[Rfam]
RNA: Small Cajal body-specific RNA 7
Organism: Nipponia nippon
RNA sequence: CAGAAGUGAUGAAAUAGAGAUAAUUGGAUGUCUCUUUGAAUGCAGUGUGUGUGAUAAAUGGAAUUUAAACCAAGGCAAAGUGGGGGUGGGGGUGGGGAGCGUGUGUGUGUGCGUGCAUGCAUAGAAAGGCUUUACAUGGGGGCACUGAUAAUGCAGUGCUGAUUCCGGAGUGCAUCUGAGGCAUGUUGUUAAGUUCUAGGGUGCCACUUUACAACAUUGCCAAUGAUUAAAGCCCAAAACAAGCCCACCAAGACAAGCCUAGGCAUCCUGAAUCUCUAACAGGUUCAUUAAUGACAGUGAUCCUGUGAUCUGAUCCGA
Numbered sequence: 001c002a003g004a005a006g007u008g009a010u011g012a013a014a015u016a017g018a019g020a021u022a023a024u025u026g027g028a029u030g031u032c033u034c035u036u037u038g039a040a041u042g043c044a045g046u047g048u049g050u051g052u053g054a055u056a057a058a059u060g061g062a063a064u065u066u067a068a069a070c071c072a073a074g075g076c077a078a079a080g081u082g083g084g085g086g087u088g089g090g091g092g093u094g095g096g097g098a099g100c101g102u103g104u105g106u107g108u109g110u111g112c113g114u115g116c117a118u119g120c121a122u123a124g125a126a127a128g129g130c131u132u133u134a135c136a137u138g139g140g141g142g143c144a145c146u147g148a149u150a151a152u153g154c155a156g157u158g159c160u161g162a163u164u165c166c167g168g169a170g171u172g173c174a175u176c177u178g179a180g181g182c183a184u185g186u187u188g189u190u191a192a193g194u195u196c197u198a199g200g201g202u203g204c205c206a207c208u209u210u211a212c213a214a215c216a217u218u219g220c221c222a223a224u225g226a227u228u229a230a231a232g233c234c235c236a237a238a239a240c241a242a243g244c245c246c247a248c249c250a251a252g253a254c255a256a257g258c259c260u261a262g263g264c265a266u267c268c269u270g271a272a273u274c275u276c277u278a279a280c281a282g283g284u285u286c287a288u289u290a291a292u293g294a295c296a297g298u299g300a301u302c303c304u305g306u307g308a309u310c311u312g313a314u315c316c317g318a
Base pairs, nucleotide, nucleotide: 001317003315004314184216185215186214187213188212189211191209193204194203196201